[Rfam]
RNA sequence: GUUACCUUUAAUUCAGUCCUGUGAGACUGGCAAGGUGUAAUAGACAGCUCGGCUGUCUUAUUAACAGAAAUGGAAUAUCCAUUUUUGUGUUUUUCAUGCGAAUGAGCACCUUGCCUAUUGUAGGCAAGGUGCUUUUCUA
Numbered sequence: 001g002u003u004a005c006c007u008u009u010a011a012u013u014c015a016g017u018c019c020u021g022u023g024a025g026a027c028u029g030g031c032a033a034g035g036u037g038u039a040a041u042a043g044a045c046a047g048c049u050c051g052g053c054u055g056u057c058u059u060a061u062u063a064a065c066a067g068a069a070a071u072g073g074a075a076u077a078u079c080c081a082u083u084u085u086u087g088u089g090u091u092u093u094u095c096a097u098g099c100g101a102a103u104g105a106g107c108a109c110c111u112u113g114c115c116u117a118u119u120g121u122a123g124g125c126a127a128g129g130u131g132c133u134u135u136u137c138u139a
Stems, first nucleotide, its partner, number of pairs: 003037006013030006060092001064088010104134014

PyrR binding site: a 139-nucleotide RNA sequence from Ornithinibacillus bavariensis. By type it is a cis-regulatory element. The family has 41 seed sequences and 1,498 matches in Rfam 15.1. The source organism's lineage runs through Bacteria, Bacillati, Bacilli, Caryophanales and Ornithinibacillus.